This 389-nucleotide RNA from Thermoclostridium caenicola belongs to the Rfam family "Bacterial RNase P class A".
RNA sequence: UGAGUAGGUUGAAUGGUCGCGGGCGCAGUGCCGAAAGGCCGCGCACGAGGAAAGUCCGGGCUCCGCAGGGCAGGGUGCCGGGUAAUACCCGGUGAAGGCGACUUCAAGGAAAGUGCAACAGAAAUAAACCGCUGGGGAUGAAAAGUGUGGAUGGUUCCUGCCGGAACCGGCAAGCGCUUUCUCCUCAGCAAGGGUGGAAAGGCGAGGUAAGAGCUCACCGGCCCGACGGCAACGAAGGGCGCUCUGCAAACCCCACCUGGAGCAACACCGUGACGAGGAGCGAUAGGUGGCCCGCCUGUUCCUCAGAGGUGGCUGGAGCCAUGUAGCAAUACAUGGCCUGGAUAGAUGAUCAUUCUCGACAGAACCCGGCUUACAGACCUACUCAUCUC
Numbered sequence: 001u002g003a004g005u006a007g008g009u010u011g012a013a014u015g016g017u018c019g020c021g022g023g024c025g026c027a028g029u030g031c032c033g034a035a036a037g038g039c040c041g042c043g044c045a046c047g048a049g050g051a052a053a054g055u056c057c058g059g060g061c062u063c064c065g066c067a068g069g070g071c072a073g074g075g076u077g078c079c080g081g082g083u084a085a086u087a088c089c090c091g092g093u094g095a096a097g098g099c100g101a102c103u104u105c106a107a108g109g110a111a112a113g114u115g116c117a118a119c120a121g122a123a124a125u126a127a128a129c130c131g132c133u134g135g136g137g138a139u140g141a142a143a144a145g146u147g148u149g150g151a152u153g154g155u156u157c158c159u160g161c162c163g164g165a166a167c168c169g170g171c172a173a174g175c176g177c178u179u180u181c182u183c184c185u186c187a188g189c190a191a192g193g194g195u196g197g198a199a200a201g202g203c204g205a206g207g208u209a210a211g212a213g214c215u216c217a218c219c220g221g222c223c224c225g226a227c228g229g230c231a232a233c234g235a236a237g238g239g240c241g242c243u244c245u246g247c248a249a250a251c252c253c254c255a256c257c258u259g260g261a262g263c264a265a266c267a268c269c270g271u272g273a274c275g276a277g278g279a280g281c282g283a284u285a286g287g288u289g290g291c292c293c294g295c296c297u298g299u300u301c302c303u304c305a306g307a308g309g310u311g312g313c314u315g316g317a318g319c320c321a322u323g324u325a326g327c328a329a330u331a332c333a334u335g336g337c338c339u340g341g342a343u344a345g346a347u348g349a350u351c352a353u354u355c356u357c358g359a360c361a362g363a364a365c366c367c368g369g370c371u372u373a374c375a376g377a378c379c380u381a382c383u384c385a386u387c388u389c
Stems, first nucleotide, its partner, number of pairs: 001385010011374001012354007020047002023044004028039001052372003056369005061262004068293004073258005078092005093107001094105004108253002113251002115247003129193002131189008201219002204216003220242001221240004227234002266311004275304006284298005318337008
It is annotated as a ribozyme.